A member of the RNA family "SAM riboswitch aptamer (S box leader)" from SAR202 cluster bacterium AD-493-K16_JPT_193m, 115 nucleotides long. The family has 457 seed sequences and 9,625 matches in Rfam 15.1.
[Rfam]
RNA sequence: CUCUUAUCAAGAGUGGCAGAGGGAACCGGCCCUGUGAAGCCCGGCAACCGGUCGUUUAGGUGAAAAAGCGUUACGGUGCCAACUCCGGCAAGCUUGACAGCUUGGAAGAUGGGAG
Numbered sequence: 001c002u003c004u005u006a007u008c009a010a011g012a013g014u015g016g017c018a019g020a021g022g023g024a025a026c027c028g029g030c031c032c033u034g035u036g037a038a039g040c041c042c043g044g045c046a047a048c049c050g051g052u053c054g055u056u057u058a059g060g061u062g063a064a065a066a067a068g069c070g071u072u073a074c075g076g077u078g079c080c081a082a083c084u085c086c087g088g089c090a091a092g093c094u095u096g097a098c099a100g101c102u103u104g105g106a107a108g109a110u111g112g113g114a115g
Stems, first nucleotide, its partner, number of pairs: 001115008013042001015041003021032003026088004043080004048076002051072001053070005084107001089104006